[Rfam]
RNA sequence: UUAGGAAAGAAGAAGCACCCGCUUCUCACCUGGUUGACGCAAUUGUGCUGUUGGCAGGUAAUACGUAAACGUCUAAUUAUUUUGUUUUCGUAAGUGUGGGUGUUGUCGCCUGCACUUUUUUUAUUGC
Numbered sequence: 001u002u003a004g005g006a007a008a009g010a011a012g013a014a015g016c017a018c019c020c021g022c023u024u025c026u027c028a029c030c031u032g033g034u035u036g037a038c039g040c041a042a043u044u045g046u047g048c049u050g051u052u053g054g055c056a057g058g059u060a061a062u063a064c065g066u067a068a069a070c071g072u073c074u075a076a077u078u079a080u081u082u083u084g085u086u087u088u089c090g091u092a093a094g095u096g097u098g099g100g101u102g103u104u105g106u107c108g109c110c111u112g113c114a115c116u117u118u119u120u121u122u123a124u125u126g127c
Stems, first nucleotide, its partner, number of pairs: 011026006028059003036052003039048002095114008